[Rfam]
RNA sequence: UUUUUUAGGGAGAUUUUGGCCUUCCCAGAAGGGGAGGCCUGGGAAUUUCCUU
Numbered sequence: 001u002u003u004u005u006u007a008g009g010g011a012g013a014u015u016u017u018g019g020c021c022u023u024c025c026c027a028g029a030a031g032g033g034g035a036g037g038c039c040u041g042g043g044a045a046u047u048u049c050c051u052u
Stems, first nucleotide, its partner, number of pairs: 008052003012048002015042002018039008

Notes: Shown here is a 52-nucleotide RNA sequence from Lentivirus humimdef1, a member of the family "HIV Ribosomal frameshift signal". On this family, see Marcheschi et al., ACS Chem Biol 2011: "Structure of the HIV-1 frameshift site RNA bound to a small molecule inhibitor of viral replication". It is one of the family's seed sequences. Rfam's curators write: This family represents the HIV Ribosomal frameshift signal.